[Rfam]
The record is a 56-nucleotide RNA sequence from Photobacterium jeanii, which matches "Pseudomonas sRNA P26" in Rfam. This small RNA (sRNA) was computationally identified in the genome of the opportunistic pathogen Pseudomonas aeruginosa and its expression verified by northern blot analysis. P26 is conserved across many Gammaproteobacteria species and appears to be consistently located between the DNA directed RNA polymerase (beta subunit) and 50S ribosomal protein L7/L12 genes.
RNA sequence: UUACUUAAUUUCUUAGCCUUUUUAGGCUAAUGGCUGGUGGCUAAUGCCACCGGCCU
Numbered sequence: 001u002u003a004c005u006u007a008a009u010u011u012c013u014u015a016g017c018c019u020u021u022u023u024a025g026g027c028u029a030a031u032g033g034c035u036g037g038u039g040g041c042u043a044a045u046g047c048c049a050c051c052g053g054c055c056u
Base pairs, nucleotide, nucleotide: 014029015028016027017026018025032055033054034053035052036051037050038049039048040047041046
For this family Rfam cites "Identification of 17 Pseudomonas aeruginosa sRNAs and prediction of sRNA-encoding genes in 10 diverse pathogens using the bioinformatic tool sRNAPredict2" (Livny et al., Nucleic Acids Res, 2006).
The source organism's lineage runs through Bacteria, Pseudomonadati, Gammaproteobacteria, Vibrionales and Photobacterium.
The family's consensus secondary structure was predicted with RNAalifold.
By type it is a non-coding RNA gene.